This 57-nucleotide RNA sequence from Nocardia mexicana belongs to the Rfam family "F6 TB sRNA". It is annotated as a small RNA.

RNA sequence: AGGUCGGCUCCGUGCUGUUGCCAGACCCCCGACCCGGCAACCGCGCGGAGCCUUAUC
Numbered sequence: 001a002g003g004u005c006g007g008c009u010c011c012g013u014g015c016u017g018u019u020g021c022c023a024g025a026c027c028c029c030c031g032a033c034c035c036g037g038c039a040a041c042c043g044c045g046c047g048g049a050g051c052c053u054u055a056u057c
Stems, first nucleotide, its partner, number of pairs: 002056001007051009017041006